Small nucleolar RNA snoR97: a 109-nucleotide RNA from Nicotiana tabacum.

RNA sequence: AACAUAUAGUGGGGUUAGUGUCUGAAAUAACUCAUAAAGUUGGUGCUGUUUAUCAGCUUCUUCUCUUGAAUAUUCAACGAGAUUGGGGUUAAAUCACAUCACUACAUAU
Numbered sequence: 001a002a003c004a005u006a007u008a009g010u011g012g013g014g015u016u017a018g019u020g021u022c023u024g025a026a027a028u029a030a031c032u033c034a035u036a037a038a039g040u041u042g043g044u045g046c047u048g049u050u051u052a053u054c055a056g057c058u059u060c061u062u063c064u065c066u067u068g069a070a071u072a073u074u075c076a077a078c079g080a081g082a083u084u085g086g087g088g089u090u091a092a093a094u095c096a097c098a099u100c101a102c103u104a105c106a107u108a109u
Stems, first nucleotide, its partner, number of pairs: 042103004047098002055090006062082004
It scores 86 bits against the family's covariance model.